Shown here is a 167-nucleotide part of an RNA from Phrynocephalus forsythii, a member of the family "Eukaryotic small subunit ribosomal RNA". It scores 1799 bits against the family's covariance model. The family has 90 seed sequences and 75,755 matches in Rfam 15.1. Taxonomically the source falls in Phrynocephalus (Eukaryota, Gnathostomata, Squamata, Agaminae). The base pairs follow the family's consensus structure, which is taken from published work.
RNA sequence: CCGCCCGUCGCUCCUACCGAUUGAAUGGUCCGGUGAAGUGUUCGGAUCGAGGCGAUGUGGGCGGUCCGCUGCCGGCAACGUCGCGAGAAGUCCACUGAACCUUAUCAUUUAGAGGAAGGAGAAGUCGUAACAAGGUUUCCGUAGGUGAACCUGCGGAAGGAUCAUUG
Number, nucleotide and partner (000 for none) at each position: 001c134002c000003g131004c000005c000006c127007g126008u000009c124010g000011c121012u120013c119014c118015u117016a000017c115018c114019g000020a000021u111022u000023g110024a109025a108026u107027g106028g105029u104030c000031c000032g101033g100034u099035g000036a000037a096038g095039u094040g093041u000042u000043c090044g000045g000046a000047u086048c085049g084050a000051g082052g081053c080054g079055a000056u077057g076058u000059g000060g073061g072062c071063g000064g000065u000066c000067c000068g000069c000070u000071g062072c061073c060074g000075g000076c057077a056078a000079c054080g053081u052082c051083g000084c049085g048086a047087g000088a000089a000090g043091u000092c000093c040094a039095c038096u037097g000098a000099a034100c033101c032102u000103u000104a029105u028106c027107a026108u025109u024110u023111a021112g000113a000114g018115g017116a000117a015118g014119g013120a012121g011122a000123a000124g009125u000126c007127g006128u000129a000130a000131c003132a000133a000134g001135g000136u159137u158138u157139c156140c155141g154142u153143a152144g151145g150146u000147g000148a000149a000150c145151c144152u143153g142154c141155g140156g139157a138158a137159g136160g000161a000162u000163c000164a000165u000166u000167g000